[Rfam]
RNA sequence: GGGGAGAACGGGGAUGGUCCCCCUAUGGGCUGCAAACCCAUGAGCCAGCCUGAGAACCAGGCUGGAGUCCGGUUCGAUUCCGACUUCUCCCC
Numbered sequence: 001g002g003g004g005a006g007a008a009c010g011g012g013g014a015u016g017g018u019c020c021c022c023c024u025a026u027g028g029g030c031u032g033c034a035a036a037c038c039c040a041u042g043a044g045c046c047a048g049c050c051u052g053a054g055a056a057c058c059a060g061g062c063u064g065g066a067g068u069c070c071g072g073u074u075c076g077a078u079u080c081c082g083a084c085u086u087c088u089c090c091c092c
Stems, first nucleotide, its partner, number of pairs: 001092008010023002012020002024043001025041005045065005068083001070082003

Record summary
Selenocysteine transfer RNA: a 92-nucleotide RNA from Desulforamulus ruminis. Rfam 15.1 lists 4,211 matches to the family in 3,344 species. Clan: tRNA clan. Taxonomically the source falls in Desulforamulus ruminis (Bacteria, Bacillati, Bacillota, Desulforamulus). The base pairs follow the family's consensus structure, which is taken from published work. The match comes from Rfam's covariance-model search (48 bits).